[Rfam]
A member of the RNA family "Mu-gpT-DE RNA", 55 nucleotides long. The sequence is in the family's curated seed alignment.
RNA sequence: UCCUGACAGGCUGCGCUGUGUAGUCUGACAUUAGCCACGACAGGAGACGUACAUG
Numbered sequence: 001u002c003c004u005g006a007c008a009g010g011c012u013g014c015g016c017u018g019u020g021u022a023g024u025c026u027g028a029c030a031u032u033a034g035c036c037a038c039g040a041c042a043g044g045a046g047a048c049g050u051a052c053a054u055g
Stems, first nucleotide, its partner, number of pairs: 002044004007027005